[Rfam]
RNA sequence: AUGGAAGUCAAUUUAGAAGAAUACAUCCAAGGGCCUUAAAAUAUGGGCAUGGGAAAAAUGGAUAGAGGGAAAGGAAACUUUUCUCACCCUCUCUCCAAAUUCCAAACAGUUUGUCUGAGUUUUUUAGCCAUUGAUCUGCACCAAUUCCGUGAAGCAGAAUCCUCCAAAUGCUGCGGAGUUUUUGGCUAAAUGCUUAGGCAUACCGGCAAGUCACAGAACGGCAACGGACUCAGUGAUGAGUCUU
Numbered sequence: 001a002u003g004g005a006a007g008u009c010a011a012u013u014u015a016g017a018a019g020a021a022u023a024c025a026u027c028c029a030a031g032g033g034c035c036u037u038a039a040a041a042u043a044u045g046g047g048c049a050u051g052g053g054a055a056a057a058a059u060g061g062a063u064a065g066a067g068g069g070a071a072a073g074g075a076a077a078c079u080u081u082u083c084u085c086a087c088c089c090u091c092u093c094u095c096c097a098a099a100u101u102c103c104a105a106a107c108a109g110u111u112u113g114u115c116u117g118a119g120u121u122u123u124u125u126a127g128c129c130a131u132u133g134a135u136c137u138g139c140a141c142c143a144a145u146u147c148c149g150u151g152a153a154g155c156a157g158a159a160u161c162c163u164c165c166a167a168a169u170g171c172u173g174c175g176g177a178g179u180u181u182u183u184g185g186c187u188a189a190a191u192g193c194u195u196a197g198g199c200a201u202a203c204c205g206g207c208a209a210g211u212c213a214c215a216g217a218a219c220g221g222c223a224a225c226g227g228a229c230u231c232a233g234u235g236a237u238g239a240g241u242c243u244u
Stems, first nucleotide, its partner, number of pairs: 060096003109203002112200003130191003227242005
The record is a 244-nucleotide RNA from Ziziphus jujuba, which matches "Early nodulin 40" in Rfam. For this family Rfam cites "Identification of conserved secondary structures and expansion segments in enod40 RNAs reveals new enod40 homologues in plants" (Gultyaev and Roussis, Nucleic Acids Res, 2007). NCBI's taxonomy places the organism under Eukaryota, Viridiplantae, rosids, Rhamnaceae, Ziziphus jujuba. The base pairs follow the family's consensus structure, which is taken from published work.